[Rfam]
RNA: Purine riboswitch aptamer
Organism: Vibrio genomosp. F10
RNA sequence: CGCGCCAAAGUUUUAUCGCACUGUAUAUGUUUAGUGAUUUGGUCUAAACGUUUCUACUACUGAGCCUAACUCGGUUGCUACAGUCAUUUUUGGUUGUGUC
Numbered sequence: 001c002g003c004g005c006c007a008a009a010g011u012u013u014u015a016u017c018g019c020a021c022u023g024u025a026u027a028u029g030u031u032u033a034g035u036g037a038u039u040u041g042g043u044c045u046a047a048a049c050g051u052u053u054c055u056a057c058u059a060c061u062g063a064g065c066c067u068a069a070c071u072c073g074g075u076u077g078c079u080a081c082a083g084u085c086a087u088u089u090u091u092g093g094u095u096g097u098g099u100c
Base pairs, nucleotide, nucleotide: 020084021083022082023081024080025079029049030048031047032046033045034044059075060074061073062072063071064070